A member of the RNA family "MIR6274 microRNA precursor family" from Prunus yedoensis, 105 nucleotides long.
[Rfam]
RNA sequence: GGAUAGCAUUGUUUUGCUAUCUCUGACCAAUAACACAAUGACACAUGAAAAAGUUAUUUCACGUGUUAUUGUGUUAUUGGCCGGGGGUAGCAAAAAGUGACAUCC
Number, nucleotide and partner (000 for none) at each position: 001g000002g104003a103004u102005a000006g000007c000008a000009u000010u000011g000012u095013u094014u093015u092016g091017c090018u089019a088020u087021c000022u085023c084024u083025g082026a000027c080028c079029a078030a077031u076032a075033a074034c073035a072036c071037a070038a069039u068040g067041a066042c065043a064044c063045a000046u061047g060048a059049a058050a057051a000052a000053g000054u000055u000056a000057u050058u049059u048060c047061a046062c000063g044064u043065g042066u041067u040068a039069u038070u037071g036072u035073g034074u033075u032076a031077u030078u029079g028080g027081c000082c025083g024084g023085g022086g000087g020088u019089a018090g017091c016092a015093a014094a013095a012096a000097g000098u000099g000100a000101c000102a004103u003104c002105c000
Lineage of the source: Eukaryota > Viridiplantae > Gunneridae > fabids > Prunus yedoensis. Rfam links the family to the GO terms RISC complex and miRNA-mediated post-transcriptional gene silencing.